The record is a 54-nucleotide RNA sequence from Coregonus sp. 'balchen', which matches "UnaL2 LINE 3' element" in Rfam. A search with the family's covariance model found it, with a score of 64 bits. The family's RNA type in Rfam is cis-regulatory element. The family has 30 seed sequences and 493,311 matches in Rfam 15.1.
[Rfam]
RNA sequence: UGCCAACAAUUUUGUAAGUCGCUCUGGAUAAGAGCGGCUGCUAAAUGAUGUAAA
Numbered sequence: 001u002g003c004c005a006a007c008a009a010u011u012u013u014g015u016a017a018g019u020c021g022c023u024c025u026g027g028a029u030a031a032g033a034g035c036g037g038c039u040g041c042u043a044a045a046u047g048a049u050g051u052a053a054a
Stems, first nucleotide, its partner, number of pairs: 013043001014041003020036006